[Rfam]
RNA sequence: UCAGCCGGCUGGACGGUCGCUGCCGCCUAACGGCGGUGGAGGAAAGUCCGGGCUCCAUGGAGACAGGGUGGCGGCUAACGGCCGCCGGGGGCGACCCCAGGGAAAGUGCCACAGAAAACAAACCGCCAACGCCGGGCCUCGGCCCAGCGCGGCAAGGGUGAAAAGGUGCGGUAAGAGCGCACCGCGCGACUGGUAACAGGAGCGGCAUGGCAAACCCCACCCGGAGCAAGACCAAAUAGGGGUGGCCGCGUGCGGGGAAACCCGGCACGGAGGCGCGUCUUCACGCCAGUCACCCGGGUUGGUUGCUUGAGGCGUCCAGCGAUGGACGUCCCAGAUGAAUGGCCGUCGCGGAGGGAAACCUCCUGACAGAACCCGGCUUACAGGCCGGCUGACAAA
Numbered sequence: 001u002c003a004g005c006c007g008g009c010u011g012g013a014c015g016g017u018c019g020c021u022g023c024c025g026c027c028u029a030a031c032g033g034c035g036g037u038g039g040a041g042g043a044a045a046g047u048c049c050g051g052g053c054u055c056c057a058u059g060g061a062g063a064c065a066g067g068g069u070g071g072c073g074g075c076u077a078a079c080g081g082c083c084g085c086c087g088g089g090g091g092c093g094a095c096c097c098c099a100g101g102g103a104a105a106g107u108g109c110c111a112c113a114g115a116a117a118a119c120a121a122a123c124c125g126c127c128a129a130c131g132c133c134g135g136g137c138c139u140c141g142g143c144c145c146a147g148c149g150c151g152g153c154a155a156g157g158g159u160g161a162a163a164a165g166g167u168g169c170g171g172u173a174a175g176a177g178c179g180c181a182c183c184g185c186g187c188g189a190c191u192g193g194u195a196a197c198a199g200g201a202g203c204g205g206c207a208u209g210g211c212a213a214a215c216c217c218c219a220c221c222c223g224g225a226g227c228a229a230g231a232c233c234a235a236a237u238a239g240g241g242g243u244g245g246c247c248g249c250g251u252g253c254g255g256g257g258a259a260a261c262c263c264g265g266c267a268c269g270g271a272g273g274c275g276c277g278u279c280u281u282c283a284c285g286c287c288a289g290u291c292a293c294c295c296g297g298g299u300u301g302g303u304u305g306c307u308u309g310a311g312g313c314g315u316c317c318a319g320c321g322a323u324g325g326a327c328g329u330c331c332c333a334g335a336u337g338a339a340u341g342g343c344c345g346u347c348g349c350g351g352a353g354g355g356a357a358a359c360c361u362c363c364u365g366a367c368a369g370a371a372c373c374c375g376g377c378u379u380a381c382a383g384g385c386c387g388g389c390u391g392a393c394a395a396a
Base pairs, nucleotide, nucleotide: 001392002391003390004389005388006387007386008385009384010383011381012347013346014345015344016343017342018341020039021038022037023036024035025034026033027032044379045378046377048376049375050374051373052372053226054225055224056223061281062280066222067221068220069219070218071085072084073083074082075081086100087098088097089096090095101217102216106215107214108211109210110209123157124156125153126152127151130149131148132147134145135144136143137142165183166182167181168180169179170178184206185204186203187202190199191198192197230304231303232302233301240295241294242293243292244291245290272287273286274285275284311330312329313328314327315326316325317324318323